[Rfam]
RNA sequence: ACCCUUGCGAGCGCAAAAUCUGUGCAUUAUCUAACAAGUGUCCUUCGGGACUAUGGACAUAAACGCGCUCGUAAUAAGCGGAUCGGACCCGGGGGCGGUACCCGGCGGCUCCACCAAACAUCCUUCAUUUGGGGAUCAUGGGGCCGAAAUAGGAUCGACGAACGUCUAAAGGGGUUUGCUUUGUCUCGGUGAGAUACCACCGUUAUCGGUUCACUUAAGCUAGUUGCAAAUGACAACCAUGCUCCAGUUGCAGUAGCUGCGUAAGCAGUUCCUAAGACUGAAAUCUUAACUCCUAGGGUUUUGCGACCCUAGGCGGGGUCCGCAGGUACCUGGCAACAGAAACCUGCAUU
Numbered sequence: 001a002c003c004c005u006u007g008c009g010a011g012c013g014c015a016a017a018a019u020c021u022g023u024g025c026a027u028u029a030u031c032u033a034a035c036a037a038g039u040g041u042c043c044u045u046c047g048g049g050a051c052u053a054u055g056g057a058c059a060u061a062a063a064c065g066c067g068c069u070c071g072u073a074a075u076a077a078g079c080g081g082a083u084c085g086g087a088c089c090c091g092g093g094g095g096c097g098g099u100a101c102c103c104g105g106c107g108g109c110u111c112c113a114c115c116a117a118a119c120a121u122c123c124u125u126c127a128u129u130u131g132g133g134g135a136u137c138a139u140g141g142g143g144c145c146g147a148a149a150u151a152g153g154a155u156c157g158a159c160g161a162a163c164g165u166c167u168a169a170a171g172g173g174g175u176u177u178g179c180u181u182u183g184u185c186u187c188g189g190u191g192a193g194a195u196a197c198c199a200c201c202g203u204u205a206u207c208g209g210u211u212c213a214c215u216u217a218a219g220c221u222a223g224u225u226g227c228a229a230a231u232g233a234c235a236a237c238c239a240u241g242c243u244c245c246a247g248u249u250g251c252a253g254u255a256g257c258u259g260c261g262u263a264a265g266c267a268g269u270u271c272c273u274a275a276g277a278c279u280g281a282a283a284u285c286u287u288a289a290c291u292c293c294u295a296g297g298g299u300u301u302u303g304c305g306a307c308c309c310u311a312g313g314c315g316g317g318g319u320c321c322g323c324a325g326g327u328a329c330c331u332g333g334c335a336a337c338a339g340a341a342a343c344c345u346g347c348a349u350u
Base pairs, nucleotide, nucleotide: 040051041050042049043048055186056185057184058183059182065179066178067175068174069173070172079164080163083161084160085159089105090104091103092102093101106146107145108144109143110142111141112140187202188201189200190199193212194211196210197209198208316331317330318329319328322347323346324345325344326343327342

Shown here is a 350-nucleotide RNA sequence from Cognatiyoonia sediminum, a member of the family "Alphaproteobacteria transfer-messenger RNA".
Pairs were carried over by alignment from the consensus structure, which is taken from published work.
Its Rfam clan is "tRNA clan".
The family's RNA type in Rfam is non-coding RNA gene.
Rfam describes the family as follows. Bacterial tmRNA, also known as 10Sa RNA or SsrA, is named for its dual tRNA and mRNA-like properties. Its role is to liberate the mRNA from a stalled ribosome. To accomplish this part of the tmRNA is used as a reading frame that ends in a translation stop signal.